[Rfam]
The record is a 122-nucleotide RNA sequence from Nematostella vectensis, which matches "U5 spliceosomal RNA" in Rfam.
The match comes from Rfam's covariance-model search (92 bits).

RNA sequence: UCACUCUGGUUUUCCUUCAUAUCGAGUAAAUCUUUCGCCUUUUACUAAAGAUUUCCGUGGAGGAGAGCACUGAAAUGAGUAUAUCACUCAAUUUUUGAUUUGCCCUGCAUUUUUGCGGGGCU
Numbered sequence: 001u002c003a004c005u006c007u008g009g010u011u012u013u014c015c016u017u018c019a020u021a022u023c024g025a026g027u028a029a030a031u032c033u034u035u036c037g038c039c040u041u042u043u044a045c046u047a048a049a050g051a052u053u054u055c056c057g058u059g060g061a062g063g064a065g066a067g068c069a070c071u072g073a074a075a076u077g078a079g080u081a082u083a084u085c086a087c088u089c090a091a092u093u094u095u096u097g098a099u100u101u102g103c104c105c106u107g108c109a110u111u112u113u114u115g116c117g118g119g120g121c122u
Stems, first nucleotide, its partner, number of pairs: 003080004009068011028054008102121006
The source organism's lineage runs through Eukaryota, Opisthokonta, Actiniaria, Edwardsiidae and Nematostella. Rfam links the family to the GO terms spliceosomal tri-snRNP complex assembly and U5 snRNP. Rfam classes the family as a spliceosomal small nuclear RNA. U5 RNA is a component of both types of known spliceosome. The precise function of this molecule is unknown, though it is known that the 5' loop is required for splice site selection and p220 binding, and that both the 3' stem-loop and the Sm site are important for Sm protein binding and cap methylation.